[Rfam]
RNA sequence: AAGUGAACAGCGGGGAGCUUGAGGAUGACAGCAUCCGGACAGGCUGAGAGGAAGGUACACCUUCGACCCAUACACCUGAUUUGGAUAAUGCCAACGUAGGAAAGUCUGGAAAUAAGAUGA
Numbered sequence: 001a002a003g004u005g006a007a008c009a010g011c012g013g014g015g016a017g018c019u020u021g022a023g024g025a026u027g028a029c030a031g032c033a034u035c036c037g038g039a040c041a042g043g044c045u046g047a048g049a050g051g052a053a054g055g056u057a058c059a060c061c062u063u064c065g066a067c068c069c070a071u072a073c074a075c076c077u078g079a080u081u082u083g084g085a086u087a088a089u090g091c092c093a094a095c096g097u098a099g100g101a102a103a104g105u106c107u108g109g110a111a112a113u114a115a116g117a118u119g120a
Base pairs, nucleotide, nucleotide: 007107009105012069013068014067017044018043019042020041021040051064052063053062054061055060075100076099077098078097081094082093083092084091
Notes
Shown here is a 120-nucleotide RNA from Clostridium sp. SY8519, a member of the family "TPP riboswitch aptamer (THI element)". The source organism's lineage runs through Bacteria, Bacillati, Eubacteriales, Clostridiaceae and Clostridium. Rfam links the family to the GO term thiamine pyrophosphate binding. From the family's description: Vitamin B(1) in its active form thiamin pyrophosphate (TPP) is an essential coenzyme that is synthesised by coupling of pyrimidine and thiazole moieties in bacteria. The previously detected thiamin-regulatory element, thi box was extended, resulting in a new, highly conserved RNA secondary structure, the THI element, which is widely distributed in eubacteria and also occurs in some archaea. Analysis of operon structures identified a large number of new candidate thiamin-regulated genes, mostly transporters, in various prokaryotic organisms. The THI element is a riboswitch that directly binds to TPP to regulate gene expression through a variety of mechanisms in archaea, bacteria and eukaryotes. through a variety of mechanisms in archaea, bacteria and eukaryotes. Tandem TPP riboswitches have been reported where both TPP riboswitches respond independently to TPP. The structure of TPP riboswitch has been reported for Escherichia coli and Arabidopsis thaliana.